Notes: The record is a 77-nucleotide RNA from Anabas testudineus, which matches "mir-27 microRNA precursor family" in Rfam.
RNA sequence: AUCAGGUGCAGAGCUUAGUCGACUGCUGAACAGGGUGGUUAACAAUUUGUUCACAGUGGCUAAGUUCUUCACUUGGA
Numbered sequence: 001a002u003c004a005g006g007u008g009c010a011g012a013g014c015u016u017a018g019u020c021g022a023c024u025g026c027u028g029a030a031c032a033g034g035g036u037g038g039u040u041a042a043c044a045a046u047u048u049g050u051u052c053a054c055a056g057u058g059g060c061u062a063a064g065u066u067c068u069u070c071a072c073u074u075g076g077a
Stems, first nucleotide, its partner, number of pairs: 011067010027053006
The source organism's lineage runs through Eukaryota, Teleostei, Euteleosteomorpha, Ctenosquamata and Anabas.
Rfam links the family to the GO terms miRNA-mediated post-transcriptional gene silencing and RISC complex.